[Rfam]
RNA: nadA riboswitch
RNA sequence: GCUUUCAACAUCCCCGUUUCGAGCAACGUUGCCGAAUUUUGACCGGCAGUUGUGUCGAGACUGAAGGC
Numbered sequence: 001g002c003u004u005u006c007a008a009c010a011u012c013c014c015c016g017u018u019u020c021g022a023g024c025a026a027c028g029u030u031g032c033c034g035a036a037u038u039u040u041g042a043c044c045g046g047c048a049g050u051u052g053u054g055u056c057g058a059g060a061c062u063g064a065a066g067g068c
Stems, first nucleotide, its partner, number of pairs: 001068007013054001014052001016061007026050002030048004